[Rfam]
RNA: ASpks TB sRNA
RNA sequence: CUUCACGGAGCCGAGCCACAGCGGCUGCUCCGCCGGGCGGUCCGCGCCGUACGUCGCGAGCAGGGCCUGCGCCUC
Number, nucleotide and partner (000 for none) at each position: 001c000002u000003u000004c000005a000006c000007g000008g000009a000010g000011c000012c000013g000014a026015g025016c024017c023018a000019c000020a000021g000022c000023g017024g016025c015026u014027g000028c000029u000030c000031c071032g070033c069034c000035g000036g000037g000038c065039g000040g000041u000042c000043c060044g000045c058046g000047c056048c000049g054050u000051a000052c000053g000054u049055c000056g047057c000058g045059a000060g043061c000062a000063g000064g000065g038066c000067c000068u000069g033070c032071g031072c000073c000074u000075c000